Small nucleolar RNA SNORA32: a 121-nucleotide RNA sequence from Pogona vitticeps. Gene Ontology terms of the family: nucleolus and RNA processing. Pairs were carried over by alignment from the consensus structure, which was predicted with RNAfold. About the family: ACA32 is a member of the H/ACA class of snoRNA that guide the sites of modification of uridines to pseudouridines. The source organism's lineage runs through Eukaryota, Metazoa, Dipnotetrapodomorpha, Sauropsida and Pogona. The family's RNA type in Rfam is H/ACA-box small nucleolar RNA.
[Rfam]
RNA sequence: UGGUCACUACCAAGGCUGCUAGGAAACACCGUUUCUGGUAUGCUGUGGACGUGACCACAAAGUAACUCCUGCAGGUUUUCAUGUUGCUGCUACAGUAGCAUCAAAUCUGUUGGAAACAUUU
Numbered sequence: 001u002g003g004u005c006a007c008u009a010c011c012a013a014g015g016c017u018g019c020u021a022g023g024a025a026a027c028a029c030c031g032u033u034u035c036u037g038g039u040a041u042g043c044u045g046u047g048g049a050c051g052u053g054a055c056c057a058c059a060a061a062g063u064a065a066c067u068c069c070u071g072c073a074g075g076u077u078u079u080c081a082u083g084u085u086g087c088u089g090c091u092a093c094a095g096u097a098g099c100a101u102c103a104a105a106u107c108u109g110u111u112g113g114a115a116a117c118a119u120u121u
Base pairs, nucleotide, nucleotide: 003055004054005053006052007051010048011047012046027042028041067114068113069112074107075106076105077104085100086099087098